[Rfam]
RNA sequence: CCUUUUCCCCCUUUUUUGCUAGAUUUUUUCUAGUUUGUUAGUUAGCAAUUGUACUCUUUAUGUGUACAAUUUAGCCUUAUACGCAAUGGUAAGCCUGUAAUAAUACUAGUAUAAGAAGAGAUUAUUAUGUCACUGAACCUAGACCAACACUGGUAGCGUGCAAAUCACUCGCGAGUCAGAGUAAUCAAAGAUCCGCUUGACGAGCCUAUAUGGAAGAGCUGUCAGCGAGCUUGCACAAACCAGUUAGUAGUUGUUAGUGGAACGGUGUCGAUAGGGAUACAC
Numbered sequence: 001c002c003u004u005u006u007c008c009c010c011c012u013u014u015u016u017u018g019c020u021a022g023a024u025u026u027u028u029u030c031u032a033g034u035u036u037g038u039u040a041g042u043u044a045g046c047a048a049u050u051g052u053a054c055u056c057u058u059u060a061u062g063u064g065u066a067c068a069a070u071u072u073a074g075c076c077u078u079a080u081a082c083g084c085a086a087u088g089g090u091a092a093g094c095c096u097g098u099a100a101u102a103a104u105a106c107u108a109g110u111a112u113a114a115g116a117a118g119a120g121a122u123u124a125u126u127a128u129g130u131c132a133c134u135g136a137a138c139c140u141a142g143a144c145c146a147a148c149a150c151u152g153g154u155a156g157c158g159u160g161c162a163a164a165u166c167a168c169u170c171g172c173g174a175g176u177c178a179g180a181g182u183a184a185u186c187a188a189a190g191a192u193c194c195g196c197u198u199g200a201c202g203a204g205c206c207u208a209u210a211u212g213g214a215a216g217a218g219c220u221g222u223c224a225g226c227g228a229g230c231u232u233g234c235a236c237a238a239a240c241c242a243g244u245u246a247g248u249a250g251u252u253g254u255u256a257g258u259g260g261a262a263c264g265g266u267g268u269c270g271a272u273a274g275g276g277a278u279a280c281a282c
Stems, first nucleotide, its partner, number of pairs: 076093005097128008106120002132266004142252003149244005160234003168229005175223001177221003196204002205213002